[Rfam]
RNA: Glycine riboswitch aptamer
Organism: Clostridium tetani
Nucleotides: 108
Stems, first nucleotide, its partner, number of pairs: 006103008020034004036088003039084002043082003049075009
Number, partner (000 for none) and nucleotide at each position: 001000u002000u003000g004000a005000a006103g007102a008101g009100u010099a011098u012097a013096a014000g015000a016000g017000a018000g019000a020034u021033c022032c023031u024000a025000u026000u027000u028000u029000a030000a031023a032022g033021g034020a035000c036088g037087c038086c039084g040083a041000a042000g043082g044081g045080a046000c047000a048000a049075u050074c051073u052072a053071u054070g055069u056068u057067u058000a059000u060000c061000c062000c063000a064000a065000u066000a067057a068056a069055a070054c071053a072052u073051a074050g075049a076000g077000a078000a079000a080045u081044u082043c083040u084039c085000a086038g087037g088036c089000a090000a091000a092000a093000g094000a095000a096013u097012u098011a099010u100009a101008c102007u103006u104000u105000g106000a107000u108000a